[Rfam]
RNA sequence: AGUCACCAGUUUGAGGCCAUAGCAGAAGUGCUUACAGCAUGUCCUGUCAGAUUCCAAUGAUAUCUGUGAAUUCUGCU
Number, nucleotide and partner (000 for none) at each position: 001a000002g000003u000004c000005a000006c000007c000008a000009g000010u000011u000012u000013g000014a000015g044016g043017c000018c041019a000020u000021a077022g076023c075024a074025g073026a072027a071028g040029u039030g038031c000032u000033u000034a000035c000036a000037g000038c030039a029040u028041g018042u000043c016044c015045u000046g000047u000048c066049a065050g064051a063052u062053u060054c059055c000056a000057a000058u000059g054060a053061u000062a052063u051064c050065u049066g048067u000068g000069a000070a000071u027072u026073c025074u024075g023076c022077u021
The family of this 77-nucleotide RNA from Crocodylus porosus is "Mammalian CPEB3 ribozyme".